RNA: Pseudomonas sRNA P26
RNA sequence: AAAACCGGGUUAACUGCCUGAGAUUCGGGCUAGGCUGGUGAUGAUUUAAUCACCGGCCU
Numbered sequence: 001a002a003a004a005c006c007g008g009g010u011u012a013a014c015u016g017c018c019u020g021a022g023a024u025u026c027g028g029g030c031u032a033g034g035c036u037g038g039u040g041a042u043g044a045u046u047u048a049a050u051c052a053c054c055g056g057c058c059u
Base pairs, nucleotide, nucleotide: 016030017029018028022026033058034057035056036055037054038053039052040051041050042049